The family of this 73-nucleotide sequence from Firmicutes bacterium CAG:114 is "tRNA". A search with the family's covariance model found it, with a score of 73 bits. Rfam classes the family as a transfer RNA. Lineage of the source: Bacteria > Bacillati > Bacillota.

RNA sequence: GCUACUGUAGCGUAGUUGGUAGCGCAAUUGAUUCGUAAUCAAUAGGUCGCCGGUUCGAGUCCGGCCAGUAGCU
Numbered sequence: 001g002c003u004a005c006u007g008u009a010g011c012g013u014a015g016u017u018g019g020u021a022g023c024g025c026a027a028u029u030g031a032u033u034c035g036u037a038a039u040c041a042a043u044a045g046g047u048c049g050c051c052g053g054u055u056c057g058a059g060u061c062c063g064g065c066c067a068g069u070a071g072c073u
Base pairs, nucleotide, nucleotide: 001072002071003070004069005068006067007066010025011024012023013022027043028042029041030040031039049065050064051063052062053061